[Rfam]
The family of this 150-nucleotide sequence from Paraburkholderia humisilvae is "Group II catalytic intron D1-D4-7". The pairing is the family consensus, mapped onto this sequence. The organism belongs to Paraburkholderia, within Bacteria. From the family's description: Group II introns are found in rRNA, tRNA and mRNA of organelles in fungi, plants and protists, and also in mRNA in bacteria. The literature on the family includes a 2001 paper in Trends Genet by Bonen and Vogel, "The ins and outs of group II introns".
RNA sequence: CCUGCUGUGUGACCAGCAGUUGACUACCCGAACGUGCGCGACUGGUAACAGUCGGGCUCGAAGCUUCGGGGACGACGUACCCGCCUUAUUGGCGAUUCCCACGGGCGGCCGGAAGGGAUCGACACUGCCAGCAGCCGUGCGGUGUGGGGC
Numbered sequence: 001c002c003u004g005c006u007g008u009g010u011g012a013c014c015a016g017c018a019g020u021u022g023a024c025u026a027c028c029c030g031a032a033c034g035u036g037c038g039c040g041a042c043u044g045g046u047a048a049c050a051g052u053c054g055g056g057c058u059c060g061a062a063g064c065u066u067c068g069g070g071g072a073c074g075a076c077g078u079a080c081c082c083g084c085c086u087u088a089u090u091g092g093c094g095a096u097u098c099c100c101a102c103g104g105g106c107g108g109c110c111g112g113a114a115g116g117g118a119u120c121g122a123c124a125c126u127g128c129c130a131g132c133a134g135c136c137g138u139g140c141g142g143u144g145u146g147g148g149g150c
Stems, first nucleotide, its partner, number of pairs: 002019006028069005033060002036057002039054006083093003094120004103110002124143005